[Rfam]
Source information
A member of the RNA family "MIR398 microRNA precursor family" from Rosa chinensis, 106 nucleotides long. For this family Rfam cites "Novel and stress-regulated microRNAs and other small RNAs from Arabidopsis" (Sunkar and Zhu, Plant Cell, 2004). Pairs were carried over by alignment from the consensus structure, which was predicted with WAR. It scores 72 bits against the family's covariance model. Rfam links the family to the GO terms RISC complex and miRNA-mediated post-transcriptional gene silencing. The family has 14 seed sequences and 627 matches in Rfam 15.1.
RNA sequence: AGAAGUCCCAUAGGAGUGACCUGAGACCACAUGUGAACACCCUCACCACAAUCCUGAAGUGAGAGUACCUAAUCGUGUGUUCUCAGGUCGCCCCUGUAGGACUUUC
Numbered sequence: 001a002g003a004a005g006u007c008c009c010a011u012a013g014g015a016g017u018g019a020c021c022u023g024a025g026a027c028c029a030c031a032u033g034u035g036a037a038c039a040c041c042c043u044c045a046c047c048a049c050a051a052u053c054c055u056g057a058a059g060u061g062a063g064a065g066u067a068c069c070u071a072a073u074c075g076u077g078u079g080u081u082c083u084c085a086g087g088u089c090g091c092c093c094c095u096g097u098a099g100g101a102c103u104u105u106c
Base pairs, nucleotide, nucleotide: 007100008099011096012095013094014093016091017090018089019088023084024083025082026081028079029078030077031076032075